The family of this 159-nucleotide RNA sequence from Desulforamulus aquiferis is "c-di-AMP riboswitch aptamer (ydaO/yuaA leader)". Gene Ontology terms of the family: regulation of gene expression and cyclic-di-AMP binding. The match comes from Rfam's covariance-model search (82 bits).
RNA sequence: UUGGUUAAUAGGCCGAAUCUCCAAAAACUGGAGUACGGGGGACUAAAUAUUUACGGGGUGAAUCCGCAACCUUUUUCAGGGGGUGUCUACAGGUGCGGUAGGGGUGCCCUUCCAACCCGAACCCGACAACUAACCUCGAAGGCCAAGAGGAGGGUAACU
Numbered sequence: 001u002u003g004g005u006u007a008a009u010a011g012g013c014c015g016a017a018u019c020u021c022c023a024a025a026a027a028c029u030g031g032a033g034u035a036c037g038g039g040g041g042a043c044u045a046a047a048u049a050u051u052u053a054c055g056g057g058g059u060g061a062a063u064c065c066g067c068a069a070c071c072u073u074u075u076u077c078a079g080g081g082g083g084u085g086u087c088u089a090c091a092g093g094u095g096c097g098g099u100a101g102g103g104g105u106g107c108c109c110u111u112c113c114a115a116c117c118c119g120a121a122c123c124c125g126a127c128a129a130c131u132a133a134c135c136u137c138g139a140a141g142g143c144c145a146a147g148a149g150g151a152g153g154g155u156a157a158c159u
Stems, first nucleotide, its partner, number of pairs: 011144004019033004036138005056124003064098004101118003